[Rfam]
RNA sequence: GUAUGCUUGCGCCAUGAACCGCUUCCUGUCCGCCCUCCGACGCCGCUCGCCGCUCCUCAUGGAUGCCGCAGGCUCGUCACGGACGCACGCGUAACCCCCUCCUCGUUACGCCAAGCUGUUCGGACCACCAAGCCACGGCAUUCCGUGGCUUUUUU
Numbered sequence: 001g002u003a004u005g006c007u008u009g010c011g012c013c014a015u016g017a018a019c020c021g022c023u024u025c026c027u028g029u030c031c032g033c034c035c036u037c038c039g040a041c042g043c044c045g046c047u048c049g050c051c052g053c054u055c056c057u058c059a060u061g062g063a064u065g066c067c068g069c070a071g072g073c074u075c076g077u078c079a080c081g082g083a084c085g086c087a088c089g090c091g092u093a094a095c096c097c098c099c100u101c102c103u104c105g106u107u108a109c110g111c112c113a114a115g116c117u118g119u120u121c122g123g124a125c126c127a128c129c130a131a132g133c134c135a136c137g138g139c140a141u142u143c144c145g146u147g148g149c150u151u152u153u154u155u
Stems, first nucleotide, its partner, number of pairs: 005125001007123002010091003019085001030082003038076003042073003045066002050061001130151009

The family of this 155-nucleotide RNA from Burkholderia glumae is "Burkholderia sRNA 7". From the family's description: Did not show any change in expression in iron-depletion and hydrogen peroxide (oxidative stress) treatment. Constitutively expressed. Possibly targets the GTPase, ObgE. On this family, see Ghosh et al., Microbiology 2017: "Identification of novel small RNAs in Burkholderia cenocepacia KC-01 expressed under iron limitation and oxidative stress conditions". The sequence is in the family's curated seed alignment. The organism belongs to Burkholderia glumae, within Bacteria.